[Rfam]
This 120-nucleotide RNA sequence from Cricetulus griseus belongs to the Rfam family "Small nucleolar RNA SNORA26". The family's RNA type in Rfam is H/ACA-box small nucleolar RNA. Rfam links the family to the GO terms RNA processing and nucleolus. Its Rfam clan is "SNORA27 clan". Pairs were carried over by alignment from the consensus structure, which was predicted with RNAalifold. Rfam's curators write: The snoRNA HBI-6 belong to the H/ACA family of snoRNAs, guiding the pseudouridylation of position U4522 if the 28S rRNA. HBI-6 is the human orthologue of mouse MBI-6 snoRNA. Rfam 15.1 lists 1,943 matches to the family in 640 species.

RNA sequence: GUGCCCUUUUGAGGUUGGUGCUAUACCUUAAGAGGCUAACAGGAAGGGUAAAGGAACUCUCCAUUAAACCCAGAGCAGAGGCUGUGCACCUCCUCUUGGAUCCUGUAUGGAGUCACAGAU
Numbered sequence: 001g002u003g004c005c006c007u008u009u010u011g012a013g014g015u016u017g018g019u020g021c022u023a024u025a026c027c028u029u030a031a032g033a034g035g036c037u038a039a040c041a042g043g044a045a046g047g048g049u050a051a052a053g054g055a056a057c058u059c060u061c062c063a064u065u066a067a068a069c070c071c072a073g074a075g076c077a078g079a080g081g082c083u084g085u086g087c088a089c090c091u092c093c094u095c096u097u098g099g100a101u102c103c104u105g106u107a108u109g110g111a112g113u114c115a116c117a118g119a120u
Base pairs, nucleotide, nucleotide: 002050003049004048005047006046007045008044009043010042014040015039016038017037019035021032059112060111061110062109063108070099071098072097074096075095078092079091080090083088